[Rfam]
RNA: Bacillaceae-1 RNA
Organism: Amphibacillus marinus
RNA sequence: AAGUGGGGAUGUUAGACUAAACCCGCCCCGUCCUAGGACAACGUCUAGCUGACGUACAUCCUGUAGG
Numbered sequence: 001a002a003g004u005g006g007g008g009a010u011g012u013u014a015g016a017c018u019a020a021a022c023c024c025g026c027c028c029c030g031u032c033c034u035a036g037g038a039c040a041a042c043g044u045c046u047a048g049c050u051g052a053c054g055u056a057c058a059u060c061c062u063g064u065a066g067g
Stems, first nucleotide, its partner, number of pairs: 011049007025039001027037002053067001055065003